RNA sequence: AUCGAUCUUCGGGGUAGGGUGCAAUUCCCGACCGGCGGUAACUUUCACAUGGAGGAAAGAAGCCCGCGACUCCUCUUCCCGUCAGCGGGCUGGGGACUGAUUUGGUGCGAAUCCAAGGCCGACGGUAUAGUCCGGAUGGUAGAAGAUCAGC
Numbered sequence: 001a002u003c004g005a006u007c008u009u010c011g012g013g014g015u016a017g018g019g020u021g022c023a024a025u026u027c028c029c030g031a032c033c034g035g036c037g038g039u040a041a042c043u044u045u046c047a048c049a050u051g052g053a054g055g056a057a058a059g060a061a062g063c064c065c066g067c068g069a070c071u072c073c074u075c076u077u078c079c080c081g082u083c084a085g086c087g088g089g090c091u092g093g094g095g096a097c098u099g100a101u102u103u104g105g106u107g108c109g110a111a112u113c114c115a116a117g118g119c120c121g122a123c124g125g126u127a128u129a130g131u132c133c134g135g136a137u138g139g140u141a142g143a144a145g146a147u148c149a150g151c
Stems, first nucleotide, its partner, number of pairs: 004148007017029003031131002033121002035067004062119002071096005101117005123134003
FMN riboswitch aptamer (RFN element): a 151-nucleotide RNA from Paenibacillus methanolicus. It scores 112 bits against the family's covariance model. About the family: The RFN element is a highly conserved domain that is found frequently in the 5'-untranslated regions of prokaryotic mRNAs that encode for flavin mononucleotide (FMN) biosynthesis and transport proteins.